Shown here is a 91-nucleotide sequence from Helianthus annuus, a member of the family "mir-395 microRNA precursor family". Rfam links the family to the GO terms miRNA-mediated post-transcriptional gene silencing and RISC complex.
RNA sequence: GUGUCCCUUAGGGAUCCUCCGAACACUUCAUUGGGAUAUUUUAUUAAUUAAGACUUCCUACUGAAGUGUUUGGGGGAACUCCAAGUGCCAC
Numbered sequence: 001g002u003g004u005c006c007c008u009u010a011g012g013g014a015u016c017c018u019c020c021g022a023a024c025a026c027u028u029c030a031u032u033g034g035g036a037u038a039u040u041u042u043a044u045u046a047a048u049u050a051a052g053a054c055u056u057c058c059u060a061c062u063g064a065a066g067u068g069u070u071u072g073g074g075g076g077a078a079c080u081c082c083a084a085g086u087g088c089c090a091c
Base pairs, nucleotide, nucleotide: 005087007085008084009083011081012080013079015077016076017075018074019073020072022071023070024068025067026066027065028064029063030062032060033059034058035057
mir-395 was identified in both Arabidopsis thaliana and Oryza sativa computationally and was later experimentally verified. mir-395 is thought to target mRNAs coding for ATP sulphurylases. The mature sequence is excised from the 3' arm of the hairpin. Pairs were carried over by alignment from the consensus structure, which was predicted with PFOLD. It scores 63 bits against the family's covariance model. Lineage of the source: Eukaryota > Euphyllophyta > Pentapetalae > campanulids > Helianthus. For this family Rfam cites "Computational Identification of Plant MicroRNAs and Their Targets, Including a Stress-Induced miRNA" (Jones-Rhoades and Bartel, Mol Cell, 2004).